[Rfam]
RNA sequence: GGGGAGUGCACCUAGGGUUCCGCUCUAUGAAAUUCUUACAGGGGACUGGUCCGAGGGGUGCAGGUUCCACAGUUGACUGUGGGAUUACACCGUAUGGAUAAAAGCCUGGGCGGG
Numbered sequence: 001g002g003g004g005a006g007u008g009c010a011c012c013u014a015g016g017g018u019u020c021c022g023c024u025c026u027a028u029g030a031a032a033u034u035c036u037u038a039c040a041g042g043g044g045a046c047u048g049g050u051c052c053g054a055g056g057g058g059u060g061c062a063g064g065u066u067c068c069a070c071a072g073u074u075g076a077c078u079g080u081g082g083g084a085u086u087a088c089a090c091c092g093u094a095u096g097g098a099u100a101a102a103a104g105c106c107u108g109g110g111c112g113g114g
Stems, first nucleotide, its partner, number of pairs: 007062006015052002020049002022046001023043004028038003063086008088109001090112001094107001096106002

The family of this 114-nucleotide RNA from Iocasia frigidifontis is "Guanidine-I riboswitch aptamer".
It scores 63 bits against the family's covariance model.
Taxonomically the source falls in Iocasia (Bacteria, Bacillota, Clostridia, Halanaerobiaceae).